[Rfam]
RNA sequence: ACAGCCUCAAAGCCGCGAUGCUCGUUCCACACAGGACUUUCCGUCCAUUUUCCGAGCGGGAAGGUCUGAGGCUUAUAGUCCCCUCGAUUGGUUCCAGAUGGACCCGGUUGUAAUCGCCGAGCGACACACAAGACAUGCGUCUGCGUUUCUUUCACCCAAAGAUCUUUCGAGGGAGGGGAAAUGGUAACGCGGGCUUGGAAUAUGUCGCGGGACUGGGUGGCUUUUCUCUCUCACUCCUACUCGGUGUCUCUAUCGCGCCUGCAUGGGCGUGUCUGCGAUCAGUGUUACACCUCGCAGAGCGUCCGCCGUUGAGCCUUUGUGCUCUGCCGUGCACGCGCUGUCCGCGGCUGCUGUGUAGACGAUACCCAGUGUACGGUGAAUCCCCGUGGUUUUUAGGAGUAUGGCUUCAUUUCAGGAGCCAUAACUUCAGUCGCCAUUAUGGUCCACUAGGGCGGCGCGGACGCGGCAGGCGUAGCGGAGAGACAGAGACUAAUGGAGUUGAGAGGAUGAACCAUCCUUUAGUGCACUUUGCGGUACACGGCGUUCGUCGCGCGCGACGCCGUGCAACUCGAUUCAGACUACUCUUAGGCUGU
Numbered sequence: 001a002c003a004g005c006c007u008c009a010a011a012g013c014c015g016c017g018a019u020g021c022u023c024g025u026u027c028c029a030c031a032c033a034g035g036a037c038u039u040u041c042c043g044u045c046c047a048u049u050u051u052c053c054g055a056g057c058g059g060g061a062a063g064g065u066c067u068g069a070g071g072c073u074u075a076u077a078g079u080c081c082c083c084u085c086g087a088u089u090g091g092u093u094c095c096a097g098a099u100g101g102a103c104c105c106g107g108u109u110g111u112a113a114u115c116g117c118c119g120a121g122c123g124a125c126a127c128a129c130a131a132g133a134c135a136u137g138c139g140u141c142u143g144c145g146u147u148u149c150u151u152u153c154a155c156c157c158a159a160a161g162a163u164c165u166u167u168c169g170a171g172g173g174a175g176g177g178g179a180a181a182u183g184g185u186a187a188c189g190c191g192g193g194c195u196u197g198g199a200a201u202a203u204g205u206c207g208c209g210g211g212a213c214u215g216g217g218u219g220g221c222u223u224u225u226c227u228c229u230c231u232c233a234c235u236c237c238u239a240c241u242c243g244g245u246g247u248c249u250c251u252a253u254c255g256c257g258c259c260u261g262c263a264u265g266g267g268c269g270u271g272u273c274u275g276c277g278a279u280c281a282g283u284g285u286u287a288c289a290c291c292u293c294g295c296a297g298a299g300c301g302u303c304c305g306c307c308g309u310u311g312a313g314c315c316u317u318u319g320u321g322c323u324c325u326g327c328c329g330u331g332c333a334c335g336c337g338c339u340g341u342c343c344g345c346g347g348c349u350g351c352u353g354u355g356u357a358g359a360c361g362a363u364a365c366c367c368a369g370u371g372u373a374c375g376g377u378g379a380a381u382c383c384c385c386g387u388g389g390u391u392u393u394u395a396g397g398a399g400u401a402u403g404g405c406u407u408c409a410u411u412u413c414a415g416g417a418g419c420c421a422u423a424a425c426u427u428c429a430g431u432c433g434c435c436a437u438u439a440u441g442g443u444c445c446a447c448u449a450g451g452g453c454g455g456c457g458c459g460g461a462c463g464c465g466g467c468a469g470g471c472g473u474a475g476c477g478g479a480g481a482g483a484c485a486g487a488g489a490c491u492a493a494u495g496g497a498g499u500u501g502a503g504a505g506g507a508u509g510a511a512c513c514a515u516c517c518u519u520u521a522g523u524g525c526a527c528u529u530u531g532c533g534g535u536a537c538a539c540g541g542c543g544u545u546c547g548u549c550g551c552g553c554g555c556g557a558c559g560c561c562g563u564g565c566a567a568c569u570c571g572a573u574u575c576a577g578a579c580u581a582c583u584c585u586u587a588g589g590c591u592g593u
Stems, first nucleotide, its partner, number of pairs: 001593004007587001009585001012535007020057005034046004066577005078213004090104005105119004110115001121208006141193002537564009
RNA: Nuclear RNase P
Organism: Mycena sanguinolenta